[Rfam]
RNA sequence: CAAGAGUGGUUGUGAUUACCUGGUUGGACUAGAGUCUCAGUAUUUCUCUGAGGAUCUUUGAAACCACCUGAUCCACCCAUU
Numbered sequence: 001c002a003a004g005a006g007u008g009g010u011u012g013u014g015a016u017u018a019c020c021u022g023g024u025u026g027g028a029c030u031a032g033a034g035u036c037u038c039a040g041u042a043u044u045u046c047u048c049u050g051a052g053g054a055u056c057u058u059u060g061a062a063a064c065c066a067c068c069u070g071a072u073c074c075a076c077c078c079a080u081u
Stems, first nucleotide, its partner, number of pairs: 003080001006077001007075003018072001020070001022068003026064001031057003035053004040048001
Small nucleolar RNA ZL8: an 81-nucleotide RNA from Rhinolophus ferrumequinum. It scores 67 bits against the family's covariance model. The source organism's lineage runs through Eukaryota, Opisthokonta, Metazoa, Deuterostomia and Rhinolophus. The base pairs follow the family's consensus structure, which was predicted with RNAfold. The family has 6 seed sequences and 113 matches in Rfam 15.1.